Shown here is a 77-nucleotide sequence from Variimorphobacter saccharofermentans, a member of the family "Fluoride riboswitch aptamer (crcB RNA motif)". Lineage of the source: Bacteria > Bacillati > Bacillota > Lachnospirales > Variimorphobacter.
RNA sequence: ACUGUAAAUGGGAAUGAAGUUCUCCCCUGGUAUGAACCUAAACCGCUUAAUAAUAAGCUGAUGACUUCUGCGAAUAU
Number, nucleotide and partner (000 for none) at each position: 001a000002c000003u000004g000005u000006a000007a000008a000009u000010g026011g025012g024013a023014a000015u000016g068017a067018a066019g065020u064021u063022c000023u013024c012025c011026c010027c000028u000029g000030g000031u000032a000033u000034g000035a000036a000037c000038c000039u000040a000041a000042a000043c000044c000045g058046c057047u056048u055049a000050a000051u000052a000053a000054u000055a048056a047057g046058c045059u000060g000061a000062u000063g021064a020065c019066u018067u017068c016069u000070g000071c000072g000073a000074a000075u000076a000077u000